RNA sequence: UCGCGUGACACGGGGUGUCCCGCGGCCAACCGGCUGUGCGGGCUGAGAUAAUACCCGUCGAACCUGAUCCAGUUCAUACUGGCGAAGGGAUGUCUGCCCUACCGGCU
Numbered sequence: 001u002c003g004c005g006u007g008a009c010a011c012g013g014g015g016u017g018u019c020c021c022g023c024g025g026c027c028a029a030c031c032g033g034c035u036g037u038g039c040g041g042g043c044u045g046a047g048a049u050a051a052u053a054c055c056c057g058u059c060g061a062a063c064c065u066g067a068u069c070c071a072g073u074u075c076a077u078a079c080u081g082g083c084g085a086a087g088g089g090a091u092g093u094c095u096g097c098c099c100u101a102c103c104g105g106c107u
Base pairs, nucleotide, nucleotide: 007094008093009092010091011057012056013055014054016051017043018042019041020040063088064087065086069082070081071080072079

This 107-nucleotide RNA sequence from Bradymonas sediminis belongs to the Rfam family "TPP riboswitch aptamer (THI element)". A search with the family's covariance model found it, with a score of 63 bits. The family's consensus secondary structure is taken from published work.